A member of the RNA family "Purine riboswitch aptamer" from Clostridium disporicum, 100 nucleotides long. The match comes from Rfam's covariance-model search (77 bits). NCBI's taxonomy places the organism under Bacteria, Bacillati, Clostridia, Eubacteriales, Clostridium.
RNA sequence: AUUCGUUUAUAAUAUGAAGCUCGUAUAAAUUCGGUAAUUGGUCCGAAAGUUUCUACCUGCUAACCGUAAUUGGCAGACUACGAGGUAUGUUAUUUUAGUG
Numbered sequence: 001a002u003u004c005g006u007u008u009a010u011a012a013u014a015u016g017a018a019g020c021u022c023g024u025a026u027a028a029a030u031u032c033g034g035u036a037a038u039u040g041g042u043c044c045g046a047a048a049g050u051u052u053c054u055a056c057c058u059g060c061u062a063a064c065c066g067u068a069a070u071u072g073g074c075a076g077a078c079u080a081c082g083a084g085g086u087a088u089g090u091u092a093u094u095u096u097a098g099u100g
Stems, first nucleotide, its partner, number of pairs: 018086001020084006030047005057076007